The family of this 102-nucleotide sequence from Acetivibrio clariflavus is "SAM riboswitch aptamer (S box leader)". The match comes from Rfam's covariance-model search (95 bits). The source organism's lineage runs through Bacteria, Bacillati, Clostridia, Acetivibrionaceae and Acetivibrio clariflavus.

RNA sequence: ACCUUAUCAAGAGAGGUGGAGGGAAGGGCCCUAUGAAACCCGGCAACCGGCUUUAAGUAUCGGUGCCAAUUCCUGCAGGAUAAAUAUCCUGAAAGAUAAGGA
Numbered sequence: 001a002c003c004u005u006a007u008c009a010a011g012a013g014a015g016g017u018g019g020a021g022g023g024a025a026g027g028g029c030c031c032u033a034u035g036a037a038a039c040c041c042g043g044c045a046a047c048c049g050g051c052u053u054u055a056a057g058u059a060u061c062g063g064u065g066c067c068a069a070u071u072c073c074u075g076c077a078g079g080a081u082a083a084a085u086a087u088c089c090u091g092a093a094a095g096a097u098a099a100g101g102a
Base pairs, nucleotide, nucleotide: 002101003100004099005098006097007096008095013041015040016039017038021031022030023029026074027073028072042067043066044065045064047063048062050058051057052056071094076091077090078089079088080087081086